A member of the RNA family "PyrR binding site" from Psittacicella melopsittaci, 132 nucleotides long.
A reference for the family is Bonner et al. (2001), "Molecular recognition of pyr mRNA by the Bacillus subtilis attenuation regulatory protein PyrR", Nucleic Acids Res.
The base pairs follow the family's consensus structure, which is taken from published work.
By type it is a cis-regulatory element.
[Rfam]
RNA sequence: UUUUCUUUUAAAUUGGUCCAGAGAGGCCAGCAAGGAACAAAAAAUUUUAGCCAACCCUUAGUGUGUCUACACUAGAGGGUUCUAAAGGCAAAGCUAAAAAGCACCUUGCGAAAGCAGGGUGCUUUUUUUAUG
Numbered sequence: 001u002u003u004u005c006u007u008u009u010a011a012a013u014u015g016g017u018c019c020a021g022a023g024a025g026g027c028c029a030g031c032a033a034g035g036a037a038c039a040a041a042a043a044a045u046u047u048u049a050g051c052c053a054a055c056c057c058u059u060a061g062u063g064u065g066u067c068u069a070c071a072c073u074a075g076a077g078g079g080u081u082c083u084a085a086a087g088g089c090a091a092a093g094c095u096a097a098a099a100a101g102c103a104c105c106u107u108g109c110g111a112a113a114g115c116a117g118g119g120u121g122c123u124u125u126u127u128u129u130a131u132g
Base pairs, nucleotide, nucleotide: 003037004036005035006034007033008032013030014029015028016027017026018025053080055078056077058075059074060073061072062071063070064069096127097126098125099124100123101122102121103120104119105118106117107116108115109114